[Rfam]
RNA sequence: CGGGUAUACCGUAAGGCGAGGGAACUCGGCAAUCUAGCUCCGUACCUAUGGUAUAAGGAGUGCCUGAGGCUUUUGCGAGGAGCAGGAGCUUCAGGUCGCAGUGACCAGGGGGUCCCGACUGUUUAAUAAAAACACAGGUGGUCGCUAGUCCGAAAGGAUGAGUACGGCCUCUGUAUCCUGGCCAGUGGCGGUACCUAAAACCUGAGUUCAAUUGGGCUAAGGGCCGCUAAACGCCGGGAGUAACUCUGACUCUCUUAAGGUAGCCAAAUGCCUUGUCGGGUAAGUUCCGACGUGCAUGAAUGGAACAACGAGGGCCCCGCUGUCCCCGCCUGCAGCCCGGUGAAGCCACUUAACGUGGACGAACAGUCCACGAA
Numbered sequence: 001c002g003g004g005u006a007u008a009c010c011g012u013a014a015g016g017c018g019a020g021g022g023a024a025c026u027c028g029g030c031a032a033u034c035u036a037g038c039u040c041c042g043u044a045c046c047u048a049u050g051g052u053a054u055a056a057g058g059a060g061u062g063c064c065u066g067a068g069g070c071u072u073u074u075g076c077g078a079g080g081a082g083c084a085g086g087a088g089c090u091u092c093a094g095g096u097c098g099c100a101g102u103g104a105c106c107a108g109g110g111g112g113u114c115c116c117g118a119c120u121g122u123u124u125a126a127u128a129a130a131a132a133c134a135c136a137g138g139u140g141g142u143c144g145c146u147a148g149u150c151c152g153a154a155a156g157g158a159u160g161a162g163u164a165c166g167g168c169c170u171c172u173g174u175a176u177c178c179u180g181g182c183c184a185g186u187g188g189c190g191g192u193a194c195c196u197a198a199a200a201c202c203u204g205a206g207u208u209c210a211a212u213u214g215g216g217c218u219a220a221g222g223g224c225c226g227c228u229a230a231a232c233g234c235c236g237g238g239a240g241u242a243a244c245u246c247u248g249a250c251u252c253u254c255u256u257a258a259g260g261u262a263g264c265c266a267a268a269u270g271c272c273u274u275g276u277c278g279g280g281u282a283a284g285u286u287c288c289g290a291c292g293u294g295c296a297u298g299a300a301u302g303g304a305a306c307a308a309c310g311a312g313g314g315c316c317c318c319g320c321u322g323u324c325c326c327c328g329c330c331u332g333c334a335g336c337c338c339g340g341u342g343a344a345g346c347c348a349c350u351u352a353a354c355g356u357g358g359a360c361g362a363a364c365a366g367u368c369c370a371c372g373a374a
Stems, first nucleotide, its partner, number of pairs: 001339004011333003015330004020325003037061005046051001062096015097101001109318007116310002120134003137172002140169005145162001148159004176304003180235003185232002187228005194223003201216005236254006255259001275291006354372005
RNA: Archaeal large subunit ribosomal RNA, nucleotides 1748 to 2121